Bacterial large subunit ribosomal RNA: a 590-nucleotide part of an RNA from Ktedonobacter racemifer. Gene Ontology terms of the family: structural constituent of ribosome and ribosome. The sequence is in the family's curated seed alignment. The family is grouped with related families in Rfam's "LSU clan".
RNA sequence: CCCACGACAGGACAAAAAGACCCCGUGGAGCUUUACUACAGUUUGGCCUGGAAACGAAGUAUGGUGUGCGUAGCAUAGGUGGGAGCCGGAGAACUCAUCCUUGUGGGGGUGAGGGAGGCAGCAGUGAAAUACCACUCUCACCAUGGUUUGUGUCUCACACGUCACCGUGAACCGGGACGUGAACAGGGCCAGAUGGGUAGUUUGACUGGGGCGGUCGCCUCCCAAAGAGUAACGGAGGCGCCCAAAGGUUCCCUCAGGGUGGAUGGACAUCACCCUUUGUAGAGUGUAAAGGCACAAGGGAGCUUGACUGUGAGGCUGACACGCCGAGCAGGGACGAAAGUCGGGCUUAGUGAUCCCACAUUCCCGUGUGGAAGGAGUGUGGCUCAACGGAUAAAAGCUACCCCGGGGAUAACAGGCUUAUCUUGCCCAAGAGUUCACAUCGACGGCAAGGUUUGGCACCUCGAUGUCGGCUCGUCGCAUCCUGGGGCUGGAGUAGGUCCCAAGGGUUGGGCUGUUCGCCCAUGAAAGCGGCACGCGAGCUGGGUUCAGAACGUCGCGAGACAGUUCGGUCUCUAUCCGUCGUGGGCGUC
Numbered sequence: 001c002c003c004a005c006g007a008c009a010g011g012a013c014a015a016a017a018a019g020a021c022c023c024c025g026u027g028g029a030g031c032u033u034u035a036c037u038a039c040a041g042u043u044u045g046g047c048c049u050g051g052a053a054a055c056g057a058a059g060u061a062u063g064g065u066g067u068g069c070g071u072a073g074c075a076u077a078g079g080u081g082g083g084a085g086c087c088g089g090a091g092a093a094c095u096c097a098u099c100c101u102u103g104u105g106g107g108g109g110u111g112a113g114g115g116a117g118g119c120a121g122c123a124g125u126g127a128a129a130u131a132c133c134a135c136u137c138u139c140a141c142c143a144u145g146g147u148u149u150g151u152g153u154c155u156c157a158c159a160c161g162u163c164a165c166c167g168u169g170a171a172c173c174g175g176g177a178c179g180u181g182a183a184c185a186g187g188g189c190c191a192g193a194u195g196g197g198u199a200g201u202u203u204g205a206c207u208g209g210g211g212c213g214g215u216c217g218c219c220u221c222c223c224a225a226a227g228a229g230u231a232a233c234g235g236a237g238g239c240g241c242c243c244a245a246a247g248g249u250u251c252c253c254u255c256a257g258g259g260u261g262g263a264u265g266g267a268c269a270u271c272a273c274c275c276u277u278u279g280u281a282g283a284g285u286g287u288a289a290a291g292g293c294a295c296a297a298g299g300g301a302g303c304u305u306g307a308c309u310g311u312g313a314g315g316c317u318g319a320c321a322c323g324c325c326g327a328g329c330a331g332g333g334a335c336g337a338a339a340g341u342c343g344g345g346c347u348u349a350g351u352g353a354u355c356c357c358a359c360a361u362u363c364c365c366g367u368g369u370g371g372a373a374g375g376a377g378u379g380u381g382g383c384u385c386a387a388c389g390g391a392u393a394a395a396a397g398c399u400a401c402c403c404c405g406g407g408g409a410u411a412a413c414a415g416g417c418u419u420a421u422c423u424u425g426c427c428c429a430a431g432a433g434u435u436c437a438c439a440u441c442g443a444c445g446g447c448a449a450g451g452u453u454u455g456g457c458a459c460c461u462c463g464a465u466g467u468c469g470g471c472u473c474g475u476c477g478c479a480u481c482c483u484g485g486g487g488c489u490g491g492a493g494u495a496g497g498u499c500c501c502a503a504g505g506g507u508u509g510g511g512c513u514g515u516u517c518g519c520c521c522a523u524g525a526a527a528g529c530g531g532c533a534c535g536c537g538a539g540c541u542g543g544g545u546u547c548a549g550a551a552c553g554u555c556g557c558g559a560g561a562c563a564g565u566u567c568g569g570u571c572u573c574u575a576u577c578c579g580u581c582g583u584g585g586g587c588g589u590c
Base pairs, nucleotide, nucleotide: 001586002585003584004583005582006581007580008579010578011577012576015572022407023406024405025404027403028402029399030398031397032396033395035201036200037199038198042193043192044191045190046189047188048187051154052153054151055150056149057148058147060145061144062143063142064141065140066139068137078136079135080134081133082132085119086118087117094113095112096111097110098109099108100107101106158181159180160179165175166174167173204216205215206214207213217239218238219237220236221235222234240388242345243344248303249302250301251300252299253298254283255282257275258274259273260272261271262270284293285292308331309330310329311328314325315324316323333342334341335340356382357381358380359379360378361377362376364375365374416457417456418455420454421451422450423449424448425447426446427445431441432440468543469541470540471539472538473535474532475531476530477529478528481506482505484501485500486499487498488497489496508522509521510520511519512518549567550566551565552564553562554561555560